Shown here is a 77-nucleotide RNA from Astyanax mexicanus, a member of the family "mir-1788 microRNA precursor family". Its family is annotated with RISC complex and miRNA-mediated post-transcriptional gene silencing in the Gene Ontology.
RNA sequence: GGGUUUUCGGGGCUUGUUUUAAGUUGCCUGCGAACUGUAUUAAAACCUCAGGCAGCUAAAGCAAGUCUGGAACACCU
Numbered sequence: 001g002g003g004u005u006u007u008c009g010g011g012g013c014u015u016g017u018u019u020u021a022a023g024u025u026g027c028c029u030g031c032g033a034a035c036u037g038u039a040u041u042a043a044a045a046c047c048u049c050a051g052g053c054a055g056c057u058a059a060a061g062c063a064a065g066u067c068u069g070g071a072a073c074a075c076c077u
Stems, first nucleotide, its partner, number of pairs: 003075002006072003010068011022057009032047001
Dot-bracket structure: ..((.(((.(((((((((((.(((((((((.(..............).)))))))))))))))))))).))).))..